Bacterial large subunit ribosomal RNA: a 275-nucleotide part of an RNA from Pseudoxanthobacter soli.
A search with the family's covariance model found it, with a score of 2710 bits.

RNA sequence: GGAAAGGCGUGUGAGAGACACGCCCGCCGAAAGUCCAAGGGUUCCUGCGUAAAGCUAAUCUGCGCAGGGUCAGCCGGCCCCUAAGCCGAGGCCGAAAGGCGUAGGCGAUGGGAAUGGGGUGAAUAUUCCCCAGCCCGUGGAAGGUGACGAACGCCGUAAGUUGUGCAGACUUAUUGGAUUGUCUGUGCGGCGAAGGAGUUCCAGGAAAUAGCCUCCACAUUAUGGACCGUACCCGAAACCGACACUGGUGGACUGGUAGAGCAUACCAAGGCGCU
Numbered sequence: 001g002g003a004a005a006g007g008c009g010u011g012u013g014a015g016a017g018a019c020a021c022g023c024c025c026g027c028c029g030a031a032a033g034u035c036c037a038a039g040g041g042u043u044c045c046u047g048c049g050u051a052a053a054g055c056u057a058a059u060c061u062g063c064g065c066a067g068g069g070u071c072a073g074c075c076g077g078c079c080c081c082u083a084a085g086c087c088g089a090g091g092c093c094g095a096a097a098g099g100c101g102u103a104g105g106c107g108a109u110g111g112g113a114a115u116g117g118g119g120u121g122a123a124u125a126u127u128c129c130c131c132a133g134c135c136c137g138u139g140g141a142a143g144g145u146g147a148c149g150a151a152c153g154c155c156g157u158a159a160g161u162u163g164u165g166c167a168g169a170c171u172u173a174u175u176g177g178a179u180u181g182u183c184u185g186u187g188c189g190g191c192g193a194a195g196g197a198g199u200u201c202c203a204g205g206a207a208a209u210a211g212c213c214u215c216c217a218c219a220u221u222a223u224g225g226a227c228c229g230u231a232c233c234c235g236a237a238a239c240c241g242a243c244a245c246u247g248g249u250g251g252a253c254u255g256g257u258a259g260a261g262c263a264u265a266c267c268a269a270g271g272c273g274c275u
Stems, first nucleotide, its partner, number of pairs: 006024006025273004033253004039233002044068006053061002075229003080111002085106003089102001091100003115132005135225003138219002140216001142214004149201004160191011239248002255267004

The base pairs follow the family's consensus structure, which is taken from published work.